[Rfam]
RNA: MIR1886 microRNA precursor family
RNA sequence: UGAGAUGAAAUUAGUAUUUGGACAUUCGAUUUAACACUGAUUUCAUCUCAUG
Numbered sequence: 001u002g003a004g005a006u007g008a009a010a011u012u013a014g015u016a017u018u019u020g021g022a023c024a025u026u027c028g029a030u031u032u033a034a035c036a037c038u039g040a041u042u043u044c045a046u047c048u049c050a051u052g
Stems, first nucleotide, its partner, number of pairs: 001050015017034001018029003